[Rfam]
RNA: Bacterial RNase P class A
Organism: Ruegeria sp. ANG-S4
RNA sequence: GCGGAGGGACGGAUGGCUGCUGGGGUGCAGACCUCAGAGGAAAGUCCGGACUCCACAAGGCAACGGUGCCGGGUAACGCCCGGGCGGGGUAACCCGACGGAAAGCGCCACAGAAAUCAAACCGCCCUGGGCUUUGGUCCAAGGCAAGGGUGAAACGGUGGGGUAAGAGCCCACCGCGCUGCUGGCAACAGCGGCGGCACGGCAAGCCCCACCGGGAGCAAUGCCAAAUAGGGUCCCCGCGCGGGCUGGUCGGUGCAAACCGAUACCGCCGCUAGGCACGUCUUGGCCAAGAGGGACCGGGUUGGCAGCUUGAGCCGCGCAGCAAUGUGCGGCCCAGAGGAAUGGUCAUCAAUGGGGGCAACCCCGGAACAAAAUCCGGCUUAUGUGCCCUCCGCGCGC
Numbered sequence: 001g002c003g004g005a006g007g008g009a010c011g012g013a014u015g016g017c018u019g020c021u022g023g024g025g026u027g028c029a030g031a032c033c034u035c036a037g038a039g040g041a042a043a044g045u046c047c048g049g050a051c052u053c054c055a056c057a058a059g060g061c062a063a064c065g066g067u068g069c070c071g072g073g074u075a076a077c078g079c080c081c082g083g084g085c086g087g088g089g090u091a092a093c094c095c096g097a098c099g100g101a102a103a104g105c106g107c108c109a110c111a112g113a114a115a116u117c118a119a120a121c122c123g124c125c126c127u128g129g130g131c132u133u134u135g136g137u138c139c140a141a142g143g144c145a146a147g148g149g150u151g152a153a154a155c156g157g158u159g160g161g162g163u164a165a166g167a168g169c170c171c172a173c174c175g176c177g178c179u180g181c182u183g184g185c186a187a188c189a190g191c192g193g194c195g196g197c198a199c200g201g202c203a204a205g206c207c208c209c210a211c212c213g214g215g216a217g218c219a220a221u222g223c224c225a226a227a228u229a230g231g232g233u234c235c236c237c238g239c240g241c242g243g244g245c246u247g248g249u250c251g252g253u254g255c256a257a258a259c260c261g262a263u264a265c266c267g268c269c270g271c272u273a274g275g276c277a278c279g280u281c282u283u284g285g286c287c288a289a290g291a292g293g294g295a296c297c298g299g300g301u302u303g304g305c306a307g308c309u310u311g312a313g314c315c316g317c318g319c320a321g322c323a324a325u326g327u328g329c330g331g332c333c334c335a336g337a338g339g340a341a342u343g344g345u346c347a348u349c350a351a352u353g354g355g356g357g358c359a360a361c362c363c364c365g366g367a368a369c370a371a372a373a374u375c376c377g378g379c380u381u382a383u384g385u386g387c388c389c390u391c392c393g394c395g396c397g398c
Stems, first nucleotide, its partner, number of pairs: 001394008011383001012349007020037007042381003046378005051217004064213005069083005084098001085096004099208002104206002106202003121148002123144003127140005156174006175197001176195008221306004231297006281290003313332008
Dot-bracket structure: ((((((((..((((((((.(((((((....)))))))....[[[.[[[[[((((.........((((((((((.....)))))(((((....)))).)((...(((((............(((((.(((((....))))).)))..)).......((((((.......))))))(((((((((....)))))))).)..)))..)))))))))))))...((((......((((((............................................(((....))).)))))).....))))......((((((((....))))))))..........)))))))........................]]]]]]]].)...))))))))....